[Rfam]
RNA: Glycine riboswitch aptamer
Organism: Methylobacterium durans
RNA sequence: ACAGACGAUGCGGGAGAGCCCAGUCCGGCGCGAGCCGGCCAUGGCGCCGACGGAGCAACCACCCCCGGAAACUCUCAGGCACAAUCACCGCACUCGUUGG
Numbered sequence: 001a002c003a004g005a006c007g008a009u010g011c012g013g014g015a016g017a018g019c020c021c022a023g024u025c026c027g028g029c030g031c032g033a034g035c036c037g038g039c040c041a042u043g044g045c046g047c048c049g050a051c052g053g054a055g056c057a058a059c060c061a062c063c064c065c066c067g068g069a070a071a072c073u074c075u076c077a078g079g080c081a082c083a084a085u086c087a088c089c090g091c092a093c094u095c096g097u098u099g100g
Stems, first nucleotide, its partner, number of pairs: 007094001009092005020044003046080003049076002053074003059068002